Description
The record is a 95-nucleotide RNA sequence from Paenibacillus phyllosphaerae, which matches "c-di-GMP-I riboswitch aptamer" in Rfam.

RNA sequence: GCAUGACAAAGGCAAACUCGUCGAAAGGCGGGGACGCAAAGCUACAGGGUCUAAGGUUCACGGGAAUGGUGAACGACGACAGCCUGGCUGCCGAA
Numbered sequence: 001g002c003a004u005g006a007c008a009a010a011g012g013c014a015a016a017c018u019c020g021u022c023g024a025a026a027g028g029c030g031g032g033g034a035c036g037c038a039a040a041g042c043u044a045c046a047g048g049g050u051c052u053a054a055g056g057u058u059c060a061c062g063g064g065a066a067u068g069g070u071g072a073a074c075g076a077c078g079a080c081a082g083c084c085u086g087g088c089u090g091c092c093g094a095a
Stems, first nucleotide, its partner, number of pairs: 012037002017032006040089004046085003049080003056074006
Dot-bracket structure: ...........((...((((((....))))))...))..((((..((((((....((((((.......))))))...)))..)))))))......
Record summary
A search with the family's covariance model found it, with a score of 77 bits.